[Rfam]
RNA sequence: UUCAACUGUGAUGAGCCUACAGACCUGUAAUGAUUUGCGGCUAUGAUCGCAAACAUAACUGAACAUCUAAGGGACUGAGUUGUC
Numbered sequence: 001u002u003c004a005a006c007u008g009u010g011a012u013g014a015g016c017c018u019a020c021a022g023a024c025c026u027g028u029a030a031u032g033a034u035u036u037g038c039g040g041c042u043a044u045g046a047u048c049g050c051a052a053a054c055a056u057a058a059c060u061g062a063a064c065a066u067c068u069a070a071g072g073g074a075c076u077g078a079g080u081u082g083u084c
Base pairs, nucleotide, nucleotide: 003082004081005080006079
This 84-nucleotide RNA from Vigna angularis belongs to the Rfam family "Small nucleolar RNA SNORD25". Its family is annotated with RNA processing and nucleolus in the Gene Ontology.